The family of this 174-nucleotide RNA sequence from Clostridium sp. SY8519 is "Lysine riboswitch aptamer". Riboswitches are metabolite binding domains within certain messenger RNAs that serve as precision sensors for their corresponding targets. The base pairs follow the family's consensus structure, which is taken from published work. Gene Ontology term of the family: lysine biosynthetic process.
[Rfam]
RNA sequence: GAAACGGAUAGAGGUCGCGCGAUUCAAGAGUAGGGGAGCGGAUGCAGCAGGUGCAGGAGAAGCUCUUCGAAAGGGGAAAGCGCCGAAAGGAUAACAGCCUGUCAUGGGAUUCCUUGGGCACUGGAUGAAUAAUUCAGUGACUGUCAUCGAGAUCGAUGGAGCGCUAUCGCAGGA
Number, nucleotide and partner (000 for none) at each position: 001g000002a000003a000004a000005c000006g000007g168008a167009u166010a165011g164012a000013g000014g000015u000016c000017g083018c082019g081020c080021g000022a000023u077024u076025c075026a000027a000028g000029a000030g000031u000032a000033g068034g067035g066036g065037a064038g063039c062040g000041g000042a000043u000044g000045c000046a000047g000048c000049a000050g000051g000052u000053g000054c000055a000056g000057g000058a000059g000060a000061a000062g039063c038064u037065c036066u035067u034068c033069g000070a000071a000072a000073g000074g000075g025076g024077a023078a000079a000080g020081c019082g018083c017084c000085g000086a000087a115088a114089g113090g112091a111092u000093a110094a000095c108096a000097g000098c106099c000100u000101g000102u000103c000104a000105u000106g098107g000108g095109a000110u093111u091112c090113c089114u088115u087116g142117g141118g000119c139120a138121c137122u136123g135124g134125a133126u132127g000128a000129a000130u000131a000132a126133u125134u124135c123136a122137g121138u120139g119140a000141c117142u116143g000144u159145c158146a157147u156148c155149g154150a000151g000152a000153u000154c149155g148156a147157u146158g145159g144160a000161g000162c000163g000164c011165u010166a009167u008168c007169g000170c000171a000172g000173g000174a000